[Rfam]
RNA sequence: CACUGACAUCAGCGAUUCAUUGUGCGAACCGGCACCGACCGCCAGGUAAGCGUUCAUGCCCAGCUCUUUCAUCUGCUGUUCGCCGAUCACACGCGUGGUGACAUUUUUGCUGUAAGCAUCGGCCAACUGACGCGCCUGCGACGCCAGAUACGCGGCGUUACAAAUAUUUGGCGGCAUGUUGCUAAGAUCUUUGGC
Numbered sequence: 001c002a003c004u005g006a007c008a009u010c011a012g013c014g015a016u017u018c019a020u021u022g023u024g025c026g027a028a029c030c031g032g033c034a035c036c037g038a039c040c041g042c043c044a045g046g047u048a049a050g051c052g053u054u055c056a057u058g059c060c061c062a063g064c065u066c067u068u069u070c071a072u073c074u075g076c077u078g079u080u081c082g083c084c085g086a087u088c089a090c091a092c093g094c095g096u097g098g099u100g101a102c103a104u105u106u107u108u109g110c111u112g113u114a115a116g117c118a119u120c121g122g123c124c125a126a127c128u129g130a131c132g133c134g135c136c137u138g139c140g141a142c143g144c145c146a147g148a149u150a151c152g153c154g155g156c157g158u159u160a161c162a163a164a165u166a167u168u169u170g171g172c173g174g175c176a177u178g179u180u181g182c183u184a185a186g187a188u189c190u191u192u193g194g195c
Stems, first nucleotide, its partner, number of pairs: 005189002013031002016028003020024001035041001050059002062077003078135002081132002084129002087126001092122001095119003099112002102109002137162002140159006167186006
Dot-bracket structure: ....((......((.(((.(...).))).))...(.....)........((......))..(((..........)))((.((.((.(....(..(((.((.((....)).))....)))..)...).)).)).)).((.((((((........)))))).))....((((((........)))))).))......

Shown here is a 195-nucleotide RNA sequence from Pantoea vagans, a member of the family "Yersinia sRNA 276". A reference for the family is Nuss et al. (2015), "Transcriptomic profiling of Yersinia pseudotuberculosis reveals reprogramming of the Crp regulon by temperature and uncovers Crp as a master regulator of small RNAs", PLoS Genet.